[Rfam]
RNA: Archaeal large subunit ribosomal RNA, nucleotides 948 to 1398
Organism: Pyrococcus horikoshii
RNA sequence: CCCGCCGAAUCAUCCCGCAGGAUGGCCUCCCCGGAGGUAGGCGGUGGGGUAGAGCACUGAUUGGAGGUGCAGGGGGCGAAAGCCCCCGGCCUCCUGUCAAACUCCGAACCCACCGCCGCCGUAGAUGGGGGGAGUAGGGUGGCGGUGUAAGCCGUCCACCGAGAGGGGAACAACCCAGACCGGGGUUAAGGCCCCAAAGUGCCGGCUAAGUGUUACUCCAAAGGGUGUCCCGGGCCUUAGACAGCGGGGAGGUAGGCUUAGAAGCAGCCAUCCUUUAAAGAGUGCGUAACAGCUCACCCGUCGAGGUCCGGGGCCCCGAAAAUGGACGGGGCUCAAGCCGGCCGCCGAGACCCCGGCGCACGGACCGAUUGGUCCGUGAUCGGGUAGGCGGGCGUGCCGGUGGCGUAGAAGCCGGGCCGUAAGGUCCGGUGGAGCCGCCGGUAUCGCGGAU
Numbered sequence: 001c002c003c004g005c006c007g008a009a010u011c012a013u014c015c016c017g018c019a020g021g022a023u024g025g026c027c028u029c030c031c032c033g034g035a036g037g038u039a040g041g042c043g044g045u046g047g048g049g050u051a052g053a054g055c056a057c058u059g060a061u062u063g064g065a066g067g068u069g070c071a072g073g074g075g076g077c078g079a080a081a082g083c084c085c086c087c088g089g090c091c092u093c094c095u096g097u098c099a100a101a102c103u104c105c106g107a108a109c110c111c112a113c114c115g116c117c118g119c120c121g122u123a124g125a126u127g128g129g130g131g132g133a134g135u136a137g138g139g140u141g142g143c144g145g146u147g148u149a150a151g152c153c154g155u156c157c158a159c160c161g162a163g164a165g166g167g168g169a170a171c172a173a174c175c176c177a178g179a180c181c182g183g184g185g186u187u188a189a190g191g192c193c194c195c196a197a198a199g200u201g202c203c204g205g206c207u208a209a210g211u212g213u214u215a216c217u218c219c220a221a222a223g224g225g226u227g228u229c230c231c232g233g234g235c236c237u238u239a240g241a242c243a244g245c246g247g248g249g250a251g252g253u254a255g256g257c258u259u260a261g262a263a264g265c266a267g268c269c270a271u272c273c274u275u276u277a278a279a280g281a282g283u284g285c286g287u288a289a290c291a292g293c294u295c296a297c298c299c300g301u302c303g304a305g306g307u308c309c310g311g312g313g314c315c316c317c318g319a320a321a322a323u324g325g326a327c328g329g330g331g332c333u334c335a336a337g338c339c340g341g342c343c344g345c346c347g348a349g350a351c352c353c354c355g356g357c358g359c360a361c362g363g364a365c366c367g368a369u370u371g372g373u374c375c376g377u378g379a380u381c382g383g384g385u386a387g388g389c390g391g392g393c394g395u396g397c398c399g400g401u402g403g404c405g406u407a408g409a410a411g412c413c414g415g416g417c418c419g420u421a422a423g424g425u426c427c428g429g430u431g432g433a434g435c436c437g438c439c440g441g442u443a444u445c446g447c448g449g450a451u
Stems, first nucleotide, its partner, number of pairs: 001392006011024005026134001027132006036120003040117008052105001053103002059098003063094006072087006138160005143154003165176003180356007190346003199343001201342006223317003227314010244301005250274003255269003275279001280295001284293002357382002359378005393446001395443010411430008